[Rfam]
RNA sequence: UGUAGAUUAUAGACGGUAUUGUAGAAGCGUGUUCGUCGCGACCCCUGCCAGCCUUUUUCAGGGCUGCAAUUCUACA
Numbered sequence: 001u002g003u004a005g006a007u008u009a010u011a012g013a014c015g016g017u018a019u020u021g022u023a024g025a026a027g028c029g030u031g032u033u034c035g036u037c038g039c040g041a042c043c044c045c046u047g048c049c050a051g052c053c054u055u056u057u058u059c060a061g062g063g064c065u066g067c068a069a070u071u072c073u074a075c076a
Stems, first nucleotide, its partner, number of pairs: 015043003020076007027039003049066007
RNA: Mammalian CPEB3 ribozyme